[Rfam]
RNA sequence: CAUCAGCAUCAAGAGUCGGUUGAUCCGACGCCAACCUGCCUCCCCGGGCAAGGUGGAUGCCUUUACGGCGAUGCGGCCUUUUAACGGCAACGAAGCGGGCGCAC
Numbered sequence: 001c002a003u004c005a006g007c008a009u010c011a012a013g014a015g016u017c018g019g020u021u022g023a024u025c026c027g028a029c030g031c032c033a034a035c036c037u038g039c040c041u042c043c044c045c046g047g048g049c050a051a052g053g054u055g056g057a058u059g060c061c062u063u064u065a066c067g068g069c070g071a072u073g074c075g076g077c078c079u080u081u082u083a084a085c086g087g088c089a090a091c092g093a094a095g096c097g098g099g100c101g102c103a104c
Stems, first nucleotide, its partner, number of pairs: 006074005015029005031056002035053003038049003043099004076088003
Rfam assigns this 104-nucleotide RNA from Duganella sp. 1224 to the family "SAM-I/IV (S-adenosyl methionine) riboswitch aptamer".
Its family is annotated with S-adenosylmethionine metabolic process and regulation of gene expression in the Gene Ontology.
NCBI's taxonomy places the organism under Bacteria, Pseudomonadati, Pseudomonadota, Betaproteobacteria, Duganella.
The family has 417 seed sequences and 567 matches in Rfam 15.1.